[Rfam]
RNA: Small nucleolar RNA SNORD116
RNA sequence: GGAUCGUUUAUGACUUCCACACAUACAUUCCUUGGAAAUCUGAACAAAAUGAGUGAGAAACCCCUACUGUCUCUCUUAGCAACCUGAGGUCC
Numbered sequence: 001g002g003a004u005c006g007u008u009u010a011u012g013a014c015u016u017c018c019a020c021a022c023a024u025a026c027a028u029u030c031c032u033u034g035g036a037a038a039u040c041u042g043a044a045c046a047a048a049a050u051g052a053g054u055g056a057g058a059a060a061c062c063c064c065u066a067c068u069g070u071c072u073c074u075c076u077u078a079g080c081a082a083c084c085u086g087a088g089g090u091c092c
Stems, first nucleotide, its partner, number of pairs: 001092005026055005032047003